RNA sequence: GUGCAAAAAUUGCCGAAUUCCCGGGCACUGGGAAGCGGGGGAACCAUUUUUCACCGGGUGAAUUGAUCUCGCCUAGCGGCAGGGGUCAUAGGGAACCUUCAACCGAACCCUUCAGCUAACCUCGCAGGCUUUGGAAGGAGUCACC
Dot-bracket structure: ...........(((...(((((((...)))))))((((((...............(((.....(((((((...........)))))))..((..........))...))).........)))))).)))................
Numbered sequence: 001g002u003g004c005a006a007a008a009a010u011u012g013c014c015g016a017a018u019u020c021c022c023g024g025g026c027a028c029u030g031g032g033a034a035g036c037g038g039g040g041g042a043a044c045c046a047u048u049u050u051u052c053a054c055c056g057g058g059u060g061a062a063u064u065g066a067u068c069u070c071g072c073c074u075a076g077c078g079g080c081a082g083g084g085g086u087c088a089u090a091g092g093g094a095a096c097c098u099u100c101a102a103c104c105g106a107a108c109c110c111u112u113c114a115g116c117u118a119a120c121c122u123c124g125c126a127g128g129c130u131u132u133g134g135a136a137g138g139a140g141u142c143a144c145c
Stems, first nucleotide, its partner, number of pairs: 012129003018034007035125006056110003064088007091104002

The record is a 145-nucleotide RNA from Cohnella lubricantis, which matches "c-di-AMP riboswitch aptamer (ydaO/yuaA leader)" in Rfam.
The source organism's lineage runs through Bacteria, Bacillati, Caryophanales, Paenibacillaceae and Cohnella.